Description
The record is an 86-nucleotide RNA sequence from Saimiri boliviensis, which matches "mir-515 microRNA precursor family" in Rfam. Rfam links the family to the GO terms miRNA-mediated post-transcriptional gene silencing and RISC complex.
RNA sequence: UCUCAUGCUGUGACCCUCUAGAAGGAAGCGAGUUCUGUAUUCUCAAAAAAAGUACUCGCAACCCUCUAGAGCGUUACCGUUUGAGA
Numbered sequence: 001u002c003u004c005a006u007g008c009u010g011u012g013a014c015c016c017u018c019u020a021g022a023a024g025g026a027a028g029c030g031a032g033u034u035c036u037g038u039a040u041u042c043u044c045a046a047a048a049a050a051a052g053u054a055c056u057c058g059c060a061a062c063c064c065u066c067u068a069g070a071g072c073g074u075u076a077c078c079g080u081u082u083g084a085g086a
Base pairs, nucleotide, nucleotide: 001086002085003084004083005082007080008079010077011076012075013074014073016071017070018069020067021066022065024063025062028059029058030057031056032055033054035052038051
Taxonomically the source falls in Saimiri boliviensis (Eukaryota, Sarcopterygii, Tetrapoda, Platyrrhini). Pairs were carried over by alignment from the consensus structure, which was predicted with RNAalifold. The family has 181 seed sequences and 1,056 matches in Rfam 15.1. Its Rfam clan is "mir-290 clan". The literature on the family includes a 2005 paper in Nat Genet by Bentwich et al., "Identification of hundreds of conserved and nonconserved human microRNAs". A search with the family's covariance model found it, with a score of 74 bits.